[Rfam]
RNA: BsrG
RNA sequence: GCAAUAGUGGCUUACGUGGGCGGUCGGCAUCACCUCGGAAAGGAGGUGAUGCUAUGGAGACGUUUCAGGCUCUUCAAUUAAUGUUCUUAUUUGGAAUGUUUAUUCUAGCGCUUUUAACGUUUAUCCAGAAAAUGAAAUAGAUCGCCCACGCUAAGGAAACGAUCUAUUUCGUUUGUAAACCUUAUUAAGCCGACCGCCUAGUAGCGCGGCUAUUGCCAGACCGUGGACGAUACCAGCGUCUGCG
Numbered sequence: 001g002c003a004a005u006a007g008u009g010g011c012u013u014a015c016g017u018g019g020g021c022g023g024u025c026g027g028c029a030u031c032a033c034c035u036c037g038g039a040a041a042g043g044a045g046g047u048g049a050u051g052c053u054a055u056g057g058a059g060a061c062g063u064u065u066c067a068g069g070c071u072c073u074u075c076a077a078u079u080a081a082u083g084u085u086c087u088u089a090u091u092u093g094g095a096a097u098g099u100u101u102a103u104u105c106u107a108g109c110g111c112u113u114u115u116a117a118c119g120u121u122u123a124u125c126c127a128g129a130a131a132a133u134g135a136a137a138u139a140g141a142u143c144g145c146c147c148a149c150g151c152u153a154a155g156g157a158a159a160c161g162a163u164c165u166a167u168u169u170c171g172u173u174u175g176u177a178a179a180c181c182u183u184a185u186u187a188a189g190c191c192g193a194c195c196g197c198c199u200a201g202u203a204g205c206g207c208g209g210c211u212a213u214u215g216c217c218a219g220a221c222c223g224u225g226g227a228c229g230a231u232a233c234c235a236g237c238g239u240c241u242g243c244g
Stems, first nucleotide, its partner, number of pairs: 001216005007210001008192006015150008028048002031045001033043003056124001058122005069084002094115003160171003194209004222244008231235001